[Rfam]
Notes: A member of the RNA family "Group II catalytic intron D1-D4-3" from Nodosilinea sp. LEGE 07088, 167 nucleotides long. About the family: Group II introns are found in rRNA, tRNA and mRNA of organelles in fungi, plants and protists, and also in mRNA in bacteria. NCBI's taxonomy places the organism under Bacteria, Cyanophyceae, Nodosilineales, Nodosilineaceae, Nodosilinea. Gene Ontology term of the family: Group II intron splicing. The pairing is the family consensus, mapped onto this sequence.
RNA sequence: AUGGGCGUGAACUAAUGGGGUGAAAGUCCCCUGUGGGAGAACCUGCCAUCCCAAUGCUCGAAAGUCAUAGAAGGCUGAGUCUCUGGGGCGAGUUGGCACAACACAACGAAGUCUUUUGGUUCAGGGAAUACGGUAAAUGUCGCGGUUGCGCAUUGACAGUUCACGGU
Numbered sequence: 001a002u003g004g005g006c007g008u009g010a011a012c013u014a015a016u017g018g019g020g021u022g023a024a025a026g027u028c029c030c031c032u033g034u035g036g037g038a039g040a041a042c043c044u045g046c047c048a049u050c051c052c053a054a055u056g057c058u059c060g061a062a063a064g065u066c067a068u069a070g071a072a073g074g075c076u077g078a079g080u081c082u083c084u085g086g087g088g089c090g091a092g093u094u095g096g097c098a099c100a101a102c103a104c105a106a107c108g109a110a111g112u113c114u115u116u117u118g119g120u121u122c123a124g125g126g127a128a129u130a131c132g133g134u135a136a137a138u139g140u141c142g143c144g145g146u147u148g149c150g151c152a153u154u155g156a157c158a159g160u161u162c163a164c165g166g167u
Stems, first nucleotide, its partner, number of pairs: 001016002004013002031166003037161002044152003048147001050145002064141001066139003074134003079129002082126003086114004092107004